The record is a 58-nucleotide RNA from Rhodovulum sp. PH10, which matches "terC RNA" in Rfam. The match comes from Rfam's covariance-model search (61 bits). It is annotated as a cis-regulatory element. The family's consensus secondary structure is taken from published work.
[Rfam]
RNA sequence: CGACCAGGCCGGGCCCCUCUGGCAGCGCGUUGCCGCGCUGUGAUGUCGGACUGGAUCU
Numbered sequence: 001c002g003a004c005c006a007g008g009c010c011g012g013g014c015c016c017c018u019c020u021g022g023c024a025g026c027g028c029g030u031u032g033c034c035g036c037g038c039u040g041u042g043a044u045g046u047c048g049g050a051c052u053g054g055a056u057c058u
Base pairs, nucleotide, nucleotide: 006052007051009049010048011047012046022041023040024039025038026037027036028035029034